Background: Rfam assigns this 76-nucleotide sequence from Helianthus annuus to the family "Small nucleolar RNA snoR53Y".

[Rfam]
RNA sequence: GUUCCCAAUGAUUUUAAAUUUGACCAUGCUAAUUCUGAUAUUGUUGAAUCAGUUCACAGUUAUUAAUGAGGGAACU
Dot-bracket structure: (((((.................................................................))))).
Notes:
A search with the family's covariance model found it, with a score of 53 bits. The family's RNA type in Rfam is C/D-box small nucleolar RNA. Clan: snoR53 clan. The family has 7 seed sequences and 513 matches in Rfam 15.1. Pairs were carried over by alignment from the consensus structure, which was predicted with WAR. A reference for the family is Brown et al. (2001), "Multiple snoRNA gene clusters from Arabidopsis", RNA. Rfam links the family to the GO terms RNA processing and nucleolus.